A member of the RNA family "mir-276 microRNA precursor family" from Diaphorina citri, 95 nucleotides long.
Rfam 15.1 lists 200 matches to the family in 170 species.
The source organism's lineage runs through Eukaryota, Eumetazoa, Allotriocarida, Paraneoptera and Diaphorina.
The match comes from Rfam's covariance-model search (83 bits).

[Rfam]
RNA sequence: CAUAAUUUCAUCCAGUAGCGAGGUAUAGAGUUCCUACGUACCAAUUUUUUAAUGAAUUUGUAGGAACUUCAUACCGUGCUCUUGGAUUUGCUAGU
Numbered sequence: 001c002a003u004a005a006u007u008u009c010a011u012c013c014a015g016u017a018g019c020g021a022g023g024u025a026u027a028g029a030g031u032u033c034c035u036a037c038g039u040a041c042c043a044a045u046u047u048u049u050u051a052a053u054g055a056a057u058u059u060g061u062a063g064g065a066a067c068u069u070c071a072u073a074c075c076g077u078g079c080u081c082u083u084g085g086a087u088u089u090g091c092u093a094g095u
Base pairs, nucleotide, nucleotide: 012085013084014083017080018079019078020077022075023074024073025072026071028069029068030067031066032065033064034063035062036061037060